[Rfam]
RNA sequence: AAGGUUGGGGUCUGUGGUUGAAAGCCGAUGCCAGUCGCAGGCGAAACGGUCCACGUAAGCUGGGGAAAUUCUCAGUGAGCACGGUGCGGUUUAGACGUAAGCCCGGCCGGACGAAAAGUUCGAGAGAGCGGCGUGGGGGCCAUGAUGGCUAUGAGCAAUGCUCCUGCCGGCGAAUGUGGGGUCAAAAACCAGGUCAGCCAAAUCUU
Numbered sequence: 001a002a003g004g005u006u007g008g009g010g011u012c013u014g015u016g017g018u019u020g021a022a023a024g025c026c027g028a029u030g031c032c033a034g035u036c037g038c039a040g041g042c043g044a045a046a047c048g049g050u051c052c053a054c055g056u057a058a059g060c061u062g063g064g065g066a067a068a069u070u071c072u073c074a075g076u077g078a079g080c081a082c083g084g085u086g087c088g089g090u091u092u093a094g095a096c097g098u099a100a101g102c103c104c105g106g107c108c109g110g111a112c113g114a115a116a117a118g119u120u121c122g123a124g125a126g127a128g129c130g131g132c133g134u135g136g137g138g139g140c141c142a143u144g145a146u147g148g149c150u151a152u153g154a155g156c157a158a159u160g161c162u163c164c165u166g167c168c169g170g171c172g173a174a175u176g177u178g179g180g181g182u183c184a185a186a187a188a189c190c191a192g193g194u195c196a197g198c199c200a201a202a203u204c205u206u
Base pairs, nucleotide, nucleotide: 001206002205003204004203005202006201008199009198012197013196014195015191016190017189018188019187028177029176030175031041033091034090035089036088037087038086039085050084051083058076062072063071064070103170104169105168106167107166108122109121110120111119112118126163127162128161129160133156134155139149140148141147
Annotation:
raiA RNA: a 206-nucleotide sequence. Rfam's curators put it in the seed alignment. The family's consensus secondary structure is taken from published work.